[Rfam]
RNA sequence: CGCCUAACCCCUAUGGGCAACCAUAGGGUAUGGCAUAAAAACCAGUCACGGACACCAAACCCAUCGUUUGGGGUUACCGUGACUGGUCAUAUUCCGAAAGGAGUAUGGAUGGCUUCGGCCGUC
Numbered sequence: 001c002g003c004c005u006a007a008c009c010c011c012u013a014u015g016g017g018c019a020a021c022c023a024u025a026g027g028g029u030a031u032g033g034c035a036u037a038a039a040a041a042c043c044a045g046u047c048a049c050g051g052a053c054a055c056c057a058a059a060c061c062c063a064u065c066g067u068u069u070g071g072g073g074u075u076a077c078c079g080u081g082a083c084u085g086g087u088c089a090u091a092u093u094c095c096g097a098a099a100g101g102a103g104u105a106u107g108g109a110u111g112g113c114u115u116c117g118g119c120c121g122u123c
Stems, first nucleotide, its partner, number of pairs: 002034003009028007042086010053073001055071006088107008108123006
A member of the RNA family "LOOT RNA", 123 nucleotides long. Rfam's curators put it in the seed alignment. Rfam classes the family as a small RNA.